The family of this 99-nucleotide RNA from Callithrix jacchus is "Y RNA". NCBI's taxonomy places the organism under Eukaryota, Metazoa, Chordata, Gnathostomata, Callithrix. Y RNAs are components of the Ro ribonucleoprotein particle (Ro RNP), in association with Ro60 and La proteins. The Y RNAs and Ro60 and La proteins are well conserved, but the function of the Ro RNP is not known. The base pairs follow the family's consensus structure, which is taken from published work.
RNA sequence: GGCUGGUCUGAGUGCAGUGUUUACAACUACUUGAUCACAAUCAGUUAUGGAUUUCUUUGUUCCUCCUCCACUCCCAUUGCUUCACUUGACUAGCCUUUA
Numbered sequence: 001g002g003c004u005g006g007u008c009u010g011a012g013u014g015c016a017g018u019g020u021u022u023a024c025a026a027c028u029a030c031u032u033g034a035u036c037a038c039a040a041u042c043a044g045u046u047a048u049g050g051a052u053u054u055c056u057u058u059g060u061u062c063c064u065c066c067u068c069c070a071c072u073c074c075c076a077u078u079g080c081u082u083c084a085c086u087u088g089a090c091u092a093g094c095c096u097u098u099a
Stems, first nucleotide, its partner, number of pairs: 001095008010087002014083001016078004025061003029057001